[Rfam]
RNA sequence: UAUGUGGAUGUGAGAAUUGGAGGAAACCAAAGAGAUUGAUGUUUGAAAUGAAUGGUGCUUUCUCUCUGGUUUUCUCCAAUAUCUCAUAUUCAGUUC
Numbered sequence: 001u002a003u004g005u006g007g008a009u010g011u012g013a014g015a016a017u018u019g020g021a022g023g024a025a026a027c028c029a030a031a032g033a034g035a036u037u038g039a040u041g042u043u044u045g046a047a048a049u050g051a052a053u054g055g056u057g058c059u060u061u062c063u064c065u066c067u068g069g070u071u072u073u074c075u076c077c078a079a080u081a082u083c084u085c086a087u088a089u090u091c092a093g094u095u096c
Stems, first nucleotide, its partner, number of pairs: 005092004011086004016080006023073007032064002
The record is a 96-nucleotide RNA sequence from Populus deltoides, which matches "MIR2275 microRNA precursor family" in Rfam. The source organism's lineage runs through Eukaryota, Embryophyta, Euphyllophyta, fabids and Populus. Gene Ontology terms of the family: miRNA-mediated post-transcriptional gene silencing and RISC complex.